[Rfam]
This 74-nucleotide RNA from Enterocloster bolteae belongs to the Rfam family "tRNA".
RNA sequence: GUCUCUGUAGCUCAGCAGGAUAGAGCGUUCGCCUCCUAAGCGAAAGGCCGUGGGUUCGAAUCCCGCCAGGGACG
Numbered sequence: 001g002u003c004u005c006u007g008u009a010g011c012u013c014a015g016c017a018g019g020a021u022a023g024a025g026c027g028u029u030c031g032c033c034u035c036c037u038a039a040g041c042g043a044a045a046g047g048c049c050g051u052g053g054g055u056u057c058g059a060a061u062c063c064c065g066c067c068a069g070g071g072a073c074g
Base pairs, nucleotide, nucleotide: 001073002072003071004070005069006068007067010026011025012024013023028044029043030042031041032040050066051065052064053063054062